[Rfam]
RNA sequence: GCCCCGAACAUUGGGGAGUAGCCGGCCUUAGUCAACUAAGGGAUCUGCGUCAACAUUCUUGGCCCGCAGGCCAUGGUGCAGAUAGUCGCAAGACUUGGCGAGACCAUCGCUCAAAUGACGACCGCAUGGGCCGGGGUCGCUGUUUGCGCUUUGGUUAUUAUUCCGGCCCCAGAAAGUU
Numbered sequence: 001g002c003c004c005c006g007a008a009c010a011u012u013g014g015g016g017a018g019u020a021g022c023c024g025g026c027c028u029u030a031g032u033c034a035a036c037u038a039a040g041g042g043a044u045c046u047g048c049g050u051c052a053a054c055a056u057u058c059u060u061g062g063c064c065c066g067c068a069g070g071c072c073a074u075g076g077u078g079c080a081g082a083u084a085g086u087c088g089c090a091a092g093a094c095u096u097g098g099c100g101a102g103a104c105c106a107u108c109g110c111u112c113a114a115a116u117g118a119c120g121a122c123c124g125c126a127u128g129g130g131c132c133g134g135g136g137u138c139g140c141u142g143u144u145u146g147c148g149c150u151u152u153g154g155u156u157a158u159u160a161u162u163c164c165g166g167c168c169c170c171a172g173a174a175a176g177u178u
Stems, first nucleotide, its partner, number of pairs: 026041003043083010060073005090177001

Manganese Mn2+ riboswitch aptamer (yybP-ykoY): a 178-nucleotide RNA from Herminiimonas arsenicoxydans. Rfam 15.1 lists 1,126 matches to the family in 1,062 species. Rfam describes the family as follows. This RNA was originally discovered in E. coli during a large scale screen and was named SraF. The family was later found to exist upstream of related families of protein genes in many bacteria, including the the yybP and ykoK genes in B. subtilis. The specific functions of these proteins are unknown, but this structured RNA element may be involved in their genetic regulation as a riboswitch. The match comes from Rfam's covariance-model search (94 bits).